Shown here is a 450-nucleotide RNA from Corynebacterium endometrii, a member of the family "Bacterial RNase P class A". Ribonuclease P (RNase P) is a ubiquitous endoribonuclease, found in archaea, bacteria and eukarya as well as chloroplasts and mitochondria. Its best characterised activity is the generation of mature 5'-ends of tRNAs by cleaving the 5'-leader elements of precursor-tRNAs. Cellular RNase Ps are ribonucleoproteins. The family's RNA type in Rfam is ribozyme. NCBI's taxonomy places the organism under Bacteria, Bacillati, Actinomycetota, Mycobacteriales, Corynebacterium. It scores 263 bits against the family's covariance model.
[Rfam]
RNA sequence: UGAGCCAGCUGGGUGAUCGCGGCGACCGGACGCGCGUCCUGUUUAUUCAGGGCGUGGCUGCGGAAGUCGAGGAAAGUCCGGACUCCACAGAGUACGGUGGUUGCUAACGGCAACCCGGGGCGACCCGCGGGCAAGUGCAACAGAAAGUAGACCGCCGCGUUUCCCGCCCGCGAUUUAGCGCGGUGCGGGGCUACGAGGUAAGGGUGAAACGGUGCGUUAAGAGCGCACCAGCACCCCAAGUGAUUGGGGUGGCUGGGUAAACCCCACCGGGAGCAAGGCAUCAAGACCCGCCACGUGUUUCGGGUCCGAUCAGGCGUUUUAAGGGCUGCUCGCCCAAGCCUGAAGGUAGCUGCUUGAGGCUAGCCAAUGGCUAGCCCAGAUGGAUGAUCACCGCGGCAUCACUGCGGUGGUGCCGGUAGACAGAAUCCGGCUUACAGGCUGACUCAUUCG
Dot-bracket structure: ((((.(((((((((((((.((((..(((................................)))..))))....[[[.[[[[[((((...[[[[.((((((((((.....)))))(((((....)))).)((...((((.............(((((.(((................................))).)))..)).......((((((.......)))))).(((((((((....)))))))).)...))..)))))))))))))...(((.(((.(.....................................((((.]]]]))))...).))).....))).......(((((((...)))))))..........))))))).................................]]]]]]]].).))))).))))....
Numbered sequence: 001u002g003a004g005c006c007a008g009c010u011g012g013g014u015g016a017u018c019g020c021g022g023c024g025a026c027c028g029g030a031c032g033c034g035c036g037u038c039c040u041g042u043u044u045a046u047u048c049a050g051g052g053c054g055u056g057g058c059u060g061c062g063g064a065a066g067u068c069g070a071g072g073a074a075a076g077u078c079c080g081g082a083c084u085c086c087a088c089a090g091a092g093u094a095c096g097g098u099g100g101u102u103g104c105u106a107a108c109g110g111c112a113a114c115c116c117g118g119g120g121c122g123a124c125c126c127g128c129g130g131g132c133a134a135g136u137g138c139a140a141c142a143g144a145a146a147g148u149a150g151a152c153c154g155c156c157g158c159g160u161u162u163c164c165c166g167c168c169c170g171c172g173a174u175u176u177a178g179c180g181c182g183g184u185g186c187g188g189g190g191c192u193a194c195g196a197g198g199u200a201a202g203g204g205u206g207a208a209a210c211g212g213u214g215c216g217u218u219a220a221g222a223g224c225g226c227a228c229c230a231g232c233a234c235c236c237c238a239a240g241u242g243a244u245u246g247g248g249g250u251g252g253c254u255g256g257g258u259a260a261a262c263c264c265c266a267c268c269g270g271g272a273g274c275a276a277g278g279c280a281u282c283a284a285g286a287c288c289c290g291c292c293a294c295g296u297g298u299u300u301c302g303g304g305u306c307c308g309a310u311c312a313g314g315c316g317u318u319u320u321a322a323g324g325g326c327u328g329c330u331c332g333c334c335c336a337a338g339c340c341u342g343a344a345g346g347u348a349g350c351u352g353c354u355u356g357a358g359g360c361u362a363g364c365c366a367a368u369g370g371c372u373a374g375c376c377c378a379g380a381u382g383g384a385u386g387a388u389c390a391c392c393g394c395g396g397c398a399u400c401a402c403u404g405c406g407g408u409g410g411u412g413c414c415g416g417u418a419g420a421c422a423g424a425a426u427c428c429g430g431c432u433u434a435c436a437g438g439c440u441g442a443c444u445c446a447u448u449c450g
Stems, first nucleotide, its partner, number of pairs: 001446004006441005011435001012392007020069004026063003074433003078430005083273004090331004095269005100114005115129001116127004130264002135262002137258002152203002154199003158195003211229006231253001232251008277351003281343003285339001323335004359375007